Source information: A member of the RNA family "c-di-GMP-I-GGC riboswitch aptamer" from Betaproteobacteria bacterium SCN1, 86 nucleotides long. Lineage of the source: Bacteria > Pseudomonadati > Pseudomonadota > Betaproteobacteria. The match comes from Rfam's covariance-model search (62 bits).

[Rfam]
Nucleotides: 086
Base pairs, nucleotide, nucleotide: 003083004082011036012035016031017030018029019028020027021026034072040078041077042076044075045074046073047070048069049068050067051066052065053064
Number, partner (000 for none) and nucleotide at each position: 001000a002000c003083c004082g005000a006000a007000c008000a009000g010000g011036g012035c013000a014000a015000a016031c017030c018029c019028g020027c021026c022000g023000c024000g025000a026021g027020g028019c029018g030017g031016g032000g033000a034072c035012g036011c037000a038000a039000a040078g041077u042076u043000u044075c045074c046073g047070g048069u049068c050067u051066c052065g053064u054000u055000c056000c057000u058000g059000a060000c061000g062000g063000c064053g065052c066051g067050a068049g069048a070047u071000a072034g073046c074045g075044g076042g077041g078040c079000c080000g081000c082004c083003g084000g085000c086000c